[Rfam]
RNA sequence: UAUGAUUUUAAAGCGCCAGGACUCAUAAAGAGUAUCAGUAAUUAUGAUGCACUAUGAGUUGACGAGGAUGGGGAGUAUCGAAUCUUCGGCGGAUGCCCCGCGGUAGCGCACUACCGUUAAUGAUUGAUAAAAGCGAAAAGUGAUUUUCGUGACAACAUCAAUCUGGUGUUAAAA
Numbered sequence: 001u002a003u004g005a006u007u008u009u010a011a012a013g014c015g016c017c018a019g020g021a022c023u024c025a026u027a028a029a030g031a032g033u034a035u036c037a038g039u040a041a042u043u044a045u046g047a048u049g050c051a052c053u054a055u056g057a058g059u060u061g062a063c064g065a066g067g068a069u070g071g072g073g074a075g076u077a078u079c080g081a082a083u084c085u086u087c088g089g090c091g092g093a094u095g096c097c098c099c100g101c102g103g104u105a106g107c108g109c110a111c112u113a114c115c116g117u118u119a120a121u122g123a124u125u126g127a128u129a130a131a132a133g134c135g136a137a138a139a140g141u142g143a144u145u146u147u148c149g150u151g152a153c154a155a156c157a158u159c160a161a162u163c164u165g166g167u168g169u170u171a172a173a174a
Base pairs, nucleotide, nucleotide: 020060021059022058023057024056025055026054027053069100070099071098072097073096078089079088080087081086101116102115103114104113105112106111122163123162124161125160126159133150134149135148136147137146138145139144